[Rfam]
RNA sequence: AUACUUACCUUAAGAUGUCAGAGGAGAUCAAGUAGUCCUACUGACCGAAUAUAUCCUUCCAAUCAGAAGAAUGCUAAGCAUUUAAGUCAUUGUUAUGGAUUCGUUACAUUUCAAUACUUUUUAAUUGAUGUAAGCUUCUUAGCCACUUACACAUACUCGCGGAAGGUAUAUUUGCUGACGUUUCGUUUUCUCGUGUACCUUGAAAGGUAACUCUUGAUUUCCUGCCUAAGGUUUUCAAGUCUUACUUCUUUUUAGGGCACCCUUUUUCCCUUCUGCCUGGAGAAGUUUGACACCGAGUACAAAUCGGUGUUGAGGAAGCUGGGACCAACAGGAAGAGAUUAUUCUUCAAAGAUGACUGUGGCUCUAUAUGAGAAGAGGUAUCGACUAGUUAAAAGAGUUGAUCCUGAAAUAAGGAGGUUAAACUUUUUCACUGACAUGAUCAUCUUCUUAUAUAUCUAUGGUUACUUUACUUCGGUAAAGAGUCUUUGAAGUUCAAUUAGCUCCAUGUGAGAAAAUUCUUUUGGUUUUGGUAGAAACGGGUGGGUCUUAUAAUUUUUGAUUUAUUUU
Numbered sequence: 001a002u003a004c005u006u007a008c009c010u011u012a013a014g015a016u017g018u019c020a021g022a023g024g025a026g027a028u029c030a031a032g033u034a035g036u037c038c039u040a041c042u043g044a045c046c047g048a049a050u051a052u053a054u055c056c057u058u059c060c061a062a063u064c065a066g067a068a069g070a071a072u073g074c075u076a077a078g079c080a081u082u083u084a085a086g087u088c089a090u091u092g093u094u095a096u097g098g099a100u101u102c103g104u105u106a107c108a109u110u111u112c113a114a115u116a117c118u119u120u121u122u123a124a125u126u127g128a129u130g131u132a133a134g135c136u137u138c139u140u141a142g143c144c145a146c147u148u149a150c151a152c153a154u155a156c157u158c159g160c161g162g163a164a165g166g167u168a169u170a171u172u173u174g175c176u177g178a179c180g181u182u183u184c185g186u187u188u189u190c191u192c193g194u195g196u197a198c199c200u201u202g203a204a205a206g207g208u209a210a211c212u213c214u215u216g217a218u219u220u221c222c223u224g225c226c227u228a229a230g231g232u233u234u235u236c237a238a239g240u241c242u243u244a245c246u247u248c249u250u251u252u253u254a255g256g257g258c259a260c261c262c263u264u265u266u267u268c269c270c271u272u273c274u275g276c277c278u279g280g281a282g283a284a285g286u287u288u289g290a291c292a293c294c295g296a297g298u299a300c301a302a303a304u305c306g307g308u309g310u311u312g313a314g315g316a317a318g319c320u321g322g323g324a325c326c327a328a329c330a331g332g333a334a335g336a337g338a339u340u341a342u343u344c345u346u347c348a349a350a351g352a353u354g355a356c357u358g359u360g361g362c363u364c365u366a367u368a369u370g371a372g373a374a375g376a377g378g379u380a381u382c383g384a385c386u387a388g389u390u391a392a393a394a395g396a397g398u399u400g401a402u403c404c405u406g407a408a409a410u411a412a413g414g415a416g417g418u419u420a421a422a423c424u425u426u427u428u429c430a431c432u433g434a435c436a437u438g439a440u441c442a443u444c445u446u447c448u449u450a451u452a453u454a455u456c457u458a459u460g461g462u463u464a465c466u467u468u469a470c471u472u473c474g475g476u477a478a479a480g481a482g483u484c485u486u487u488g489a490a491g492u493u494c495a496a497u498u499a500g501c502u503c504c505a506u507g508u509g510a511g512a513a514a515a516u517u518c519u520u521u522u523g524g525u526u527u528u529g530g531u532a533g534a535a536a537c538g539g540g541u542g543g544g545u546c547u548u549a550u551a552a553u554u555u556u557u558g559a560u561u562u563a564u565u566u567u
Stems, first nucleotide, its partner, number of pairs: 010552003013547003017045005022039004046174009056165005073156001179538006187317006193260004198256003204250004217235001221231002270285005290310007503509001
Overview:
The record is a 567-nucleotide RNA sequence from Naumovozyma dairenensis, which matches "Yeast U1 spliceosomal RNA" in Rfam. The match comes from Rfam's covariance-model search (252 bits). Its family is annotated with mRNA 5'-splice site recognition, U1 snRNP and pre-mRNA 5'-splice site binding in the Gene Ontology. About the family: U1 is a small nuclear RNA (snRNA) component of the spliceosome (involved in pre-mRNA splicing). Its 5' end forms complementary base pairs with the 5' splice junction, thus defining the 5' donor site of an intron. There are significant differences in sequence and secondary structure between metazoan and yeast U1 snRNAs, the latter being much longer (568 nucleotides as compared to 164 nucleotides in human). Nevertheless, secondary structure predictions suggest that all U1 snRNAs share a 'common core' consisting of helices I, II, the proximal region of III, and IV. This family represents the larger yeast sequences.